[Rfam]
Notes
The family of this 171-nucleotide RNA from Kurthia sp. 11kri321 is "glmS glucosamine-6-phosphate activated ribozyme aptamer".

Nucleotides: 171
Base pairs, nucleotide, nucleotide: 020053021052022051023050024049025048026047027046062094063093064092065091066090071083072082073081074080095112096111097110098109099108100107117161118160119159120158121157122156123155130147131146132145133144134143135142136141
Number, partner (000 for none) and nucleotide at each position: 001000a002000a003000a004000a005000c006000a007000g008000u009000u010000a011000u012000a013000g014000c015000g016000c017000c018000a019000g020053u021052a022051c023050u024049g025048a026047a027046g028000a029000a030000a031000u032000c033000g034000g035000a036000c037000g038000a039000c040000a041000a042000g043000u044000a045000u046027c047026u048025u049024c050023a051022g052021u053020a054000g055000a056000c057000g058000a059000g060000g061000u062094g063093g064092a065091g066090g067000a068000g069000u070000a071083u072082c073081g074080a075000a076000a077000g078000u079000u080074u081073c082072g083071g084000c085000g086000g087000a088000u089000g090066c091065c092064u093063c094062c095112c096111g097110g098109u099108c100107g101000a102000c103000a104000g105000c106000c107100c108099g109098a110097u111096c112095g113000u114000a115000a116000g117161u118160u119159c120158a121157u122156c123155u124000u125000u126000a127000a128000a129000a130147u131146a132145g133144u134143g135142a136141a137000g138000u139000g140000a141136u142135u143134c144133a145132u146131u147130a148000g149000a150000c151000a152000a153000a154000g155123a156122g157121a158120u159119g160118a161117a162000a163000u164000g165000g166000c167000a168000a169000a170000u171000c
Rfam classes the family as a riboswitch.